[Rfam]
RNA sequence: AGUAGUAGCAAAUACUUAAAUAAGAACUUUAAGGACUAAAGUAGGGAAAGGUUCUGUGUAAACAGUAGUUAGACACAGGUUAGUUAAUUCUAAGAGAUAGAGUAGUUCUAUUUUAAUGUUAGCGCUUGCGCUAUACUCUUAAAAGAGAAGCUAGUUAAUAUUCUAGCACCUAGAUGUAGAUUCUUUGCAGCAACGCAACUAAGAGCGGAGACCUUAGCAGAAGCCCUAAGAAGAGUUCUCUUUUCUUCUUAACAGUCUGUUACUCUAAAAUUAGUUUGUCUAGAGCUAGGGUUUAAUAGCCAAAAGAGCGCUGCACUUUUGCGGCGUUUAGUGCACUCCUAACGAGCCUUAAAAAUCUGCUUAAAGAAAUAGUUUUUACGCUAAGUUGUACUUAUAACUGCAGCAGGUCUUCAAGGUAAAAAGCCUCUAGUUAA
Numbered sequence: 001a002g003u004a005g006u007a008g009c010a011a012a013u014a015c016u017u018a019a020a021u022a023a024g025a026a027c028u029u030u031a032a033g034g035a036c037u038a039a040a041g042u043a044g045g046g047a048a049a050g051g052u053u054c055u056g057u058g059u060a061a062a063c064a065g066u067a068g069u070u071a072g073a074c075a076c077a078g079g080u081u082a083g084u085u086a087a088u089u090c091u092a093a094g095a096g097a098u099a100g101a102g103u104a105g106u107u108c109u110a111u112u113u114u115a116a117u118g119u120u121a122g123c124g125c126u127u128g129c130g131c132u133a134u135a136c137u138c139u140u141a142a143a144a145g146a147g148a149a150g151c152u153a154g155u156u157a158a159u160a161u162u163c164u165a166g167c168a169c170c171u172a173g174a175u176g177u178a179g180a181u182u183c184u185u186u187g188c189a190g191c192a193a194c195g196c197a198a199c200u201a202a203g204a205g206c207g208g209a210g211a212c213c214u215u216a217g218c219a220g221a222a223g224c225c226c227u228a229a230g231a232a233g234a235g236u237u238c239u240c241u242u243u244u245c246u247u248c249u250u251a252a253c254a255g256u257c258u259g260u261u262a263c264u265c266u267a268a269a270a271u272u273a274g275u276u277u278g279u280c281u282a283g284a285g286c287u288a289g290g291g292u293u294u295a296a297u298a299g300c301c302a303a304a305a306g307a308g309c310g311c312u313g314c315a316c317u318u319u320u321g322c323g324g325c326g327u328u329u330a331g332u333g334c335a336c337u338c339c340u341a342a343c344g345a346g347c348c349u350u351a352a353a354a355a356u357c358u359g360c361u362u363a364a365a366g367a368a369a370u371a372g373u374u375u376u377u378a379c380g381c382u383a384a385g386u387u388g389u390a391c392u393u394a395u396a397a398c399u400g401c402a403g404c405a406g407g408u409c410u411u412c413a414a415g416g417u418a419a420a421a422a423g424c425c426u427c428u429a430g431u432u433a434a
Base pairs, nucleotide, nucleotide: 015033016032017031018030019029020028034432035431036430037429043410044409049392050391054078055077056076057075058074059073064070085388086387087386089146090145094140095139096138097137150167151166152165153164154163171383172382173381175380176379177378178377207358208357209356213346214345215344219340220339221337224333226331227330228329229249230248231247232246233245234244255300256299262292263291264290265289266288267287272282273281274280316321398407399406414426415425416424
The record is a 434-nucleotide part of an RNA from Paraphoma chrysanthemicola, which matches "Archaeal large subunit ribosomal RNA" in Rfam. The source organism's lineage runs through Eukaryota, Opisthokonta, leotiomyceta, Phaeosphaeriaceae and Paraphoma. The family's consensus secondary structure is taken from published work. Its Rfam clan is "LSU clan". Gene Ontology terms of the family: structural constituent of ribosome and ribosome.